[Rfam]
Small nucleolar RNA Z199: an 85-nucleotide RNA sequence from Aegilops tauschii. Taxonomically the source falls in Aegilops tauschii (Eukaryota, Streptophytina, Tracheophyta, Triticodae). Rfam 15.1 lists 953 matches to the family in 222 species. Its family is annotated with RNA processing and nucleolus in the Gene Ontology. snoZ199 is a C/D box small nucleolar RNA, which acts as a methylation guide RNA for sites on 18S and 25S rRNA. Rice snoZ199 is reported to be homologous to Arabidopsis snoR13.
RNA sequence: GGGUCAAGUGAUGAGGAAUAAACCAUCAACAAUAUGAUGGAGCUAUGCUGCUCUGAUUCUUAGUAUUUAAGUCUCUGAUGAUACC
Numbered sequence: 001g002g003g004u005c006a007a008g009u010g011a012u013g014a015g016g017a018a019u020a021a022a023c024c025a026u027c028a029a030c031a032a033u034a035u036g037a038u039g040g041a042g043c044u045a046u047g048c049u050g051c052u053c054u055g056a057u058u059c060u061u062a063g064u065a066u067u068u069a070a071g072u073c074u075c076u077g078a079u080g081a082u083a084c085c
Base pairs, nucleotide, nucleotide: 001085002084004083005080006079039052040051041049042048